[Rfam]
Rfam assigns this 99-nucleotide RNA from Fretibacterium sp. OH1220_COT-178 to the family "SAM riboswitch aptamer (S box leader)". The organism belongs to Fretibacterium, within Bacteria.

RNA sequence: CUCUUAUCGAGAGAGGUGGAGGGACUGGCCCGAUGAAGCCCGGCAACCUGUCAGAUCAGGUGCCAAUACCAGCAGCCCGGCAAGGCUGGAUGAUGAGAG
Numbered sequence: 001c002u003c004u005u006a007u008c009g010a011g012a013g014a015g016g017u018g019g020a021g022g023g024a025c026u027g028g029c030c031c032g033a034u035g036a037a038g039c040c041c042g043g044c045a046a047c048c049u050g051u052c053a054g055a056u057c058a059g060g061u062g063c064c065a066a067u068a069c070c071a072g073c074a075g076c077c078c079g080g081c082a083a084g085g086c087u088g089g090a091u092g093a094u095g096a097g098a099g
Stems, first nucleotide, its partner, number of pairs: 001099008013041001015040003021031003025072004042064004047060002050056002068091001073088005
Dot-bracket structure: ((((((((....(.(((...(((.[[[[)))......))))((((.((.((...))..))))))...(]]]](((((......)))))..)))))))))
Rfam describes the family as follows. The SAM riboswitch is found upstream of a number of genes which code for proteins involved in methionine or cysteine biosynthesis in Gram-positive bacteria.